[Rfam]
Rfam assigns this 148-nucleotide RNA to the family "lysM-TM7 RNA". Pairs were carried over by alignment from the consensus structure, which is taken from published work. Rfam's curators put it in the seed alignment.
RNA sequence: GCCUGCCAGAACGGUCGUACGGAUACAGUACAAAACUAAUCGUUUAUGAAAAUAUCACUAAUAUAUUAGGUCGACAACGUAUCCCGUUCUAUUGCGAGAAGAAAGACUCAUUAUGGUAGCAGCACUGGUGGUAACACCAAUGCAGGAG
Numbered sequence: 001g002c003c004u005g006c007c008a009g010a011a012c013g014g015u016c017g018u019a020c021g022g023a024u025a026c027a028g029u030a031c032a033a034a035a036c037u038a039a040u041c042g043u044u045u046a047u048g049a050a051a052a053u054a055u056c057a058c059u060a061a062u063a064u065a066u067u068a069g070g071u072c073g074a075c076a077a078c079g080u081a082u083c084c085c086g087u088u089c090u091a092u093u094g095c096g097a098g099a100a101g102a103a104a105g106a107c108u109c110a111u112u113a114u115g116g117u118a119g120c121a122g123c124a125c126u127g128g129u130g131g132u133a134a135c136a137c138c139a140a141u142g143c144a145g146g147a148g
Stems, first nucleotide, its partner, number of pairs: 003119006013108004021084006087100004122143003126139005
About this RNA
Rfam classes the family as a cis-regulatory element.